[Rfam]
Notes:
The record is a 128-nucleotide RNA sequence from Cavia porcellus, which matches "Small nucleolar RNA SNORA11" in Rfam. The family has 35 seed sequences and 2,014 matches in Rfam 15.1. The base pairs follow the family's consensus structure, which was predicted with RNAalifold. The source organism's lineage runs through Eukaryota, Eumetazoa, Theria, Eutheria and Cavia. U107 (SNORA11) is a member of the H/ACA class of snoRNAs that guide the sites of modification of uridines to pseudouridines. This snoRNA was identified by RT-PCR from blood cells and its expression confirmed by Northern blot analysis. There is no predicted target for this guide snRNA. The match comes from Rfam's covariance-model search (90 bits).
RNA sequence: GGGGUGUGCUCAGAGAAGGUGGUCUGAAGAAUGGCUUCUCUGUUUACAACACUUAACAGGAAUCUAGGAUCACUGUGACAAAAGGCACAAAACUUGUGAUUUCUCUUUGGUGCAAAUGUCCAAACAUG
Numbered sequence: 001g002g003g004g005u006g007u008g009c010u011c012a013g014a015g016a017a018g019g020u021g022g023u024c025u026g027a028a029g030a031a032u033g034g035c036u037u038c039u040c041u042g043u044u045u046a047c048a049a050c051a052c053u054u055a056a057c058a059g060g061a062a063u064c065u066a067g068g069a070u071c072a073c074u075g076u077g078a079c080a081a082a083a084g085g086c087a088c089a090a091a092a093c094u095u096g097u098g099a100u101u102u103c104u105c106u107u108u109g110g111u112g113c114a115a116a117u118g119u120c121c122a123a124a125c126a127u128g
Stems, first nucleotide, its partner, number of pairs: 002054004008050001013045003017041003021037001022035003067121004074114003079109002082102003086098005